[Rfam]
RNA sequence: CAACACGAAGACAACGAUAGCCCUACCUCUCGAUCGUUCUUGCGGUUCCUUGGACCGCUCCAGUGAGAAUUCGUGCUCUUCCAGCAGCCG
Numbered sequence: 001c002a003a004c005a006c007g008a009a010g011a012c013a014a015c016g017a018u019a020g021c022c023c024u025a026c027c028u029c030u031c032g033a034u035c036g037u038u039c040u041u042g043c044g045g046u047u048c049c050u051u052g053g054a055c056c057g058c059u060c061c062a063g064u065g066a067g068a069a070u071u072c073g074u075g076c077u078c079u080u081c082c083a084g085c086a087g088c089c090g
Base pairs, nucleotide, nucleotide: 034068035067039063040062042058043057044056045055046054047053